[Rfam]
RNA: U5 spliceosomal RNA
RNA sequence: UCACUCUGGUCUCCCUUCAUAACGAAUAAAUCUUUCGCCUUUUACUAAAGAUUUCCGUGGAGGGGGACUCACUGAUGAGUCAAAUAUUUCUUUGAAAGCUGCCAAUCAAGGGCU
Number, nucleotide and partner (000 for none) at each position: 001u000002c000003a080004c079005u078006c077007u000008g000009g068010u067011c066012u065013c064014c063015c062016u061017u060018c059019a058020u000021a000022a000023c000024g000025a000026a000027u000028a054029a053030a052031u051032c050033u049034u048035u047036c000037g000038c000039c000040u000041u000042u000043u000044a000045c000046u000047a035048a034049a033050g032051a031052u030053u029054u028055c000056c000057g000058u019059g018060g017061a016062g015063g014064g013065g012066g011067a010068c009069u000070c000071a000072c000073u000074g000075a000076u000077g006078a005079g004080u003081c000082a000083a000084a000085u000086a000087u000088u000089u000090c000091u000092u000093u000094g000095a000096a000097a000098g000099c000100u000101g113102c112103c111104a000105a000106u000107c000108a000109a000110g000111g103112g102113c101114u000